[Rfam]
RNA sequence: AGCGAUCGGCCGCCGCAGCGGCGCCGGGAGCCGGGGACCCACCCGUCCCACCGGGGUGAAUCGCCGCGCCUGAUCCGACCGAGCCGACCCGGCUCGCCGGCCAGGGCAAGGCGUAGGACGACUUUUCCCGUCCGAACCCGUCAGCUAACUCGGCAGGCGCCCAAGGAAGAGGAC
Numbered sequence: 001a002g003c004g005a006u007c008g009g010c011c012g013c014c015g016c017a018g019c020g021g022c023g024c025c026g027g028g029a030g031c032c033g034g035g036g037a038c039c040c041a042c043c044c045g046u047c048c049c050a051c052c053g054g055g056g057u058g059a060a061u062c063g064c065c066g067c068g069c070c071u072g073a074u075c076c077g078a079c080c081g082a083g084c085c086g087a088c089c090c091g092g093c094u095c096g097c098c099g100g101c102c103a104g105g106g107c108a109a110g111g112c113g114u115a116g117g118a119c120g121a122c123u124u125u126u127c128c129c130g131u132c133c134g135a136a137c138c139c140g141u142c143a144g145c146u147a148a149c150u151c152g153g154c155a156g157g158c159g160c161c162c163a164a165g166g167a168a169g170a171g172g173a174c
Stems, first nucleotide, its partner, number of pairs: 011159004019028001030154006040053001054139003062113004116133004